[Rfam]
RNA: Bacterial RNase P class A
Organism: Pseudooceanicola marinus
RNA sequence: GCGGAGGGCCGGAUGGCCGCGGGGGCAGGCUGGAAACGGCGUCUCCGAGGAAAGUCCGGACUCCACAAGGCAACGGUGCCGGGUAACGCCCGGCGGGGGCGACCCCAGGGACAGCGCCACAGAGAACAGACCGCCCUGCACGCAGGGUAAGGGUGAAACGGUGCGGUAAGAGCGCACCGCGGGACCGGCAACGGGACCGGCAUGGCAAGCCCCACCGGGAGCAAUGCCGAAUAGGAACCUCGCGCGGGGCGGGCAGGUCGGGCAACCGAAACCGCCGCCACCGCAGGGCCGCCUUGGCCCGGAGGUUCGGGUUGGCAGCUUGAGGCGCCGGGCGACCGGCGUCCCAGAUGAAUGGUCAUCGAACCGGCUUCGGCCGGGGAACAGAAUCCGGCUUACAGGCCCUCCGCGCAC
Numbered sequence: 001g002c003g004g005a006g007g008g009c010c011g012g013a014u015g016g017c018c019g020c021g022g023g024g025g026c027a028g029g030c031u032g033g034a035a036a037c038g039g040c041g042u043c044u045c046c047g048a049g050g051a052a053a054g055u056c057c058g059g060a061c062u063c064c065a066c067a068a069g070g071c072a073a074c075g076g077u078g079c080c081g082g083g084u085a086a087c088g089c090c091c092g093g094c095g096g097g098g099g100c101g102a103c104c105c106c107a108g109g110g111a112c113a114g115c116g117c118c119a120c121a122g123a124g125a126a127c128a129g130a131c132c133g134c135c136c137u138g139c140a141c142g143c144a145g146g147g148u149a150a151g152g153g154u155g156a157a158a159c160g161g162u163g164c165g166g167u168a169a170g171a172g173c174g175c176a177c178c179g180c181g182g183g184a185c186c187g188g189c190a191a192c193g194g195g196a197c198c199g200g201c202a203u204g205g206c207a208a209g210c211c212c213c214a215c216c217g218g219g220a221g222c223a224a225u226g227c228c229g230a231a232u233a234g235g236a237a238c239c240u241c242g243c244g245c246g247g248g249g250c251g252g253g254c255a256g257g258u259c260g261g262g263c264a265a266c267c268g269a270a271a272c273c274g275c276c277g278c279c280a281c282c283g284c285a286g287g288g289c290c291g292c293c294u295u296g297g298c299c300c301g302g303a304g305g306u307u308c309g310g311g312u313u314g315g316c317a318g319c320u321u322g323a324g325g326c327g328c329c330g331g332g333c334g335a336c337c338g339g340c341g342u343c344c345c346a347g348a349u350g351a352a353u354g355g356u357c358a359u360c361g362a363a364c365c366g367g368c369u370u371c372g373g374c375c376g377g378g379g380a381a382c383a384g385a386a387u388c389c390g391g392c393u394u395a396c397a398g399g400c401c402c403u404c405c406g407c408g409c410a411c
Stems, first nucleotide, its partner, number of pairs: 001407010011396001012360007020047007052394003056391005061221004069295002074217005079093005094108001095106004109212002114210002116206003131152002133148006160178006179201001180199003185194003225317004235308006286300005324343008